[Rfam]
The family of this 202-nucleotide sequence from Listeria monocytogenes is "T-box leader".
RNA sequence: GAAAUAGCGAUGAAUUGGAGUAGUAAUCUGCAUAUUUUGAUGUGAAGAGAGCUGACGGUUGGUGCAAGUCAGUCACAAAAUCUGGAUGAACUUACCAUGGAGCUUGGGUGUAUCCCCGUUUUCCGCGUUAAGGAAUUGAUAAGUUGAGUGGUCAAACACUAAUGUGGGUGGUACCGCGGGAGAAGCAUCUCUCGUCCCAUGG
Numbered sequence: 001g002a003a004a005u006a007g008c009g010a011u012g013a014a015u016u017g018g019a020g021u022a023g024u025a026a027u028c029u030g031c032a033u034a035u036u037u038u039g040a041u042g043u044g045a046a047g048a049g050a051g052c053u054g055a056c057g058g059u060u061g062g063u064g065c066a067a068g069u070c071a072g073u074c075a076c077a078a079a080a081u082c083u084g085g086a087u088g089a090a091c092u093u094a095c096c097a098u099g100g101a102g103c104u105u106g107g108g109u110g111u112a113u114c115c116c117c118g119u120u121u122u123c124c125g126c127g128u129u130a131a132g133g134a135a136u137u138g139a140u141a142a143g144u145u146g147a148g149u150g151g152u153c154a155a156a157c158a159c160u161a162a163u164g165u166g167g168g169u170g171g172u173a174c175c176g177c178g179g180g181a182g183a184a185g186c187a188u189c190u191c192u193c194g195u196c197c198c199a200u201g202g
Stems, first nucleotide, its partner, number of pairs: 007103002016097003026087005041075002051073006106115003117127003147160004165199004176195007